This 75-nucleotide sequence from Rhinopomastus cyanomelas belongs to the Rfam family "Small nucleolar RNA SNORD58".
Rfam 15.1 lists 2,484 matches to the family in 680 species.
On this family, see Galardi et al., Mol Cell Biol 2002: "Purified box C/D snoRNPs are able to reproduce site-specific 2'-O-methylation of target RNA in vitro".
The source organism's lineage runs through Eukaryota, Sauria, Dinosauria, Saurischia and Rhinopomastus.
The family's RNA type in Rfam is C/D-box small nucleolar RNA.

[Rfam]
RNA sequence: CUGCCAUGACGAGUUUCUUAGGACACCUUUGGAUUUCAGAAUGAAAACAACUCAAAGCGGAGUUUUCCGAGCAGC
Numbered sequence: 001c002u003g004c005c006a007u008g009a010c011g012a013g014u015u016u017c018u019u020a021g022g023a024c025a026c027c028u029u030u031g032g033a034u035u036u037c038a039g040a041a042u043g044a045a046a047a048c049a050a051c052u053c054a055a056a057g058c059g060g061a062g063u064u065u066u067c068c069g070a071g072c073a074g075c
Base pairs, nucleotide, nucleotide: 001074002073003072004071